[Rfam]
RNA sequence: GCUAUUGCUUGGAAAAAUCACACACACAUCGUCACGUCUACUGGGUGCCUUCGAAUUUACUCAAAGGUUAGUAUAUGGGAUGUGUGGACGUCAAAC
Numbered sequence: 001g002c003u004a005u006u007g008c009u010u011g012g013a014a015a016a017a018u019c020a021c022a023c024a025c026a027c028a029u030c031g032u033c034a035c036g037u038c039u040a041c042u043g044g045g046u047g048c049c050u051u052c053g054a055a056u057u058u059a060c061u062c063a064a065a066g067g068u069u070a071g072u073a074u075a076u077g078g079g080a081u082g083u084g085u086g087g088a089c090g091u092c093a094a095a096c
Base pairs, nucleotide, nucleotide: 023086024085025084026083027082028081029080030079035077036076037075039073040072041071042070043069047068048067049066050065051064
Notes:
A member of the RNA family "t44 RNA" from Osedax symbiont Rs1, 96 nucleotides long. The family's RNA type in Rfam is small RNA. The base pairs follow the family's consensus structure, which was predicted with LocARNA. From the family's description: This family consists of a number of bacterial RNA genes of between 135 and 170 bases in length. The t44 gene has been identified in several species of enteric bacteria but homologs have also been identified in Pseudomonas and Coxiella species. The t44 gene is found between the map and rpsB genes in all species in the full alignment apart from Shigella flexneri. The function of this RNA is unknown.